[Rfam]
RNA sequence: AAAGAGCCUCACAUCGAAGGGCCAGCCACCCACGAUGGCCCCGAGUCAUGCGCCACCACCUGUGAGGGUGAGGGUGAAGCGUUGACAGGGGUACGAGCGGGCUGGGUAUUGAGCCGCGAAAUCAGCCAGUCCAGGGCGCCGACGCGGUUAAGUGACGCGGAAGGCAACACGGACAGGGACGCUACUGCGAGUCCCUGGCUCGGCCCUGCGCGGUCGGAGACCC
Numbered sequence: 001a002a003a004g005a006g007c008c009u010c011a012c013a014u015c016g017a018a019g020g021g022c023c024a025g026c027c028a029c030c031c032a033c034g035a036u037g038g039c040c041c042c043g044a045g046u047c048a049u050g051c052g053c054c055a056c057c058a059c060c061u062g063u064g065a066g067g068g069u070g071a072g073g074g075u076g077a078a079g080c081g082u083u084g085a086c087a088g089g090g091g092u093a094c095g096a097g098c099g100g101g102c103u104g105g106g107u108a109u110u111g112a113g114c115c116g117c118g119a120a121a122u123c124a125g126c127c128a129g130u131c132c133a134g135g136g137c138g139c140c141g142a143c144g145c146g147g148u149u150a151a152g153u154g155a156c157g158c159g160g161a162a163g164g165c166a167a168c169a170c171g172g173a174c175a176g177g178g179a180c181g182c183u184a185c186u187g188c189g190a191g192u193c194c195c196u197g198g199c200u201c202g203g204c205c206c207u208g209c210g211c212g213g214u215c216g217g218a219g220a221c222c223c
Stems, first nucleotide, its partner, number of pairs: 012037005019031003025188002039091004045086004049081002051076004057070005110217001111215001113214006132208006138165003143159004170202002172199001174197007
A member of the RNA family "Group II catalytic intron D1-D4-6" from Allostigmatella aurantiaca, 223 nucleotides long. Pairs were carried over by alignment from the consensus structure. It is one of the family's seed sequences. Lineage of the source: Bacteria > Myxococcia > Myxococcales > Archangiaceae > Allostigmatella aurantiaca. About the family: Group II introns are found in rRNA, tRNA and mRNA of organelles in fungi, plants and protists, and also in mRNA in bacteria. On this family, see Bonen and Vogel, Trends Genet 2001: "The ins and outs of group II introns".